The family of this 91-nucleotide RNA sequence from Lytechinus variegatus is "mir-252 microRNA precursor family". Pairs were carried over by alignment from the consensus structure, which was predicted with RNAalifold.
RNA sequence: GUUCUAUUCUAAGUACUAGUGCCGUAGGUUACUAACUGGAAAGGAGUAAAGCUAGUCUAUAGCUUCUCAGACCUGUUGUACUGGUGCUUAA
Numbered sequence: 001g002u003u004c005u006a007u008u009c010u011a012a013g014u015a016c017u018a019g020u021g022c023c024g025u026a027g028g029u030u031a032c033u034a035a036c037u038g039g040a041a042a043g044g045a046g047u048a049a050a051g052c053u054a055g056u057c058u059a060u061a062g063c064u065u066c067u068c069a070g071a072c073c074u075g076u077u078g079u080a081c082u083g084g085u086g087c088u089u090a091a
Stems, first nucleotide, its partner, number of pairs: 010090010024076007

For this family Rfam cites "Direct sequencing and expression analysis of a large number of miRNAs in Aedes aegypti and a multi-species survey of novel mosquito miRNAs" (Li et al., BMC Genomics, 2009). The sequence is in the family's curated seed alignment.